Shown here is a 57-nucleotide sequence from Oncorhynchus kisutch, a member of the family "U7 small nuclear RNA". The organism belongs to Oncorhynchus, within Eukaryota. From the family's description: Animal histone pre-mRNAs are spliced by a different mechanism than nuclear pre-mRNAs and self-splicing introns.
[Rfam]
RNA sequence: UGGAAAACCUGCUCUUUUACAAUUUCUCCAGUAGGUUUCUUUGAGGAGAAAGCCUCC
Numbered sequence: 001u002g003g004a005a006a007a008c009c010u011g012c013u014c015u016u017u018u019a020c021a022a023u024u025u026c027u028c029c030a031g032u033a034g035g036u037u038u039c040u041u042u043g044a045g046g047a048g049a050a051a052g053c054c055u056c057c
Base pairs, nucleotide, nucleotide: 034054035053036052037050038049039048040047041046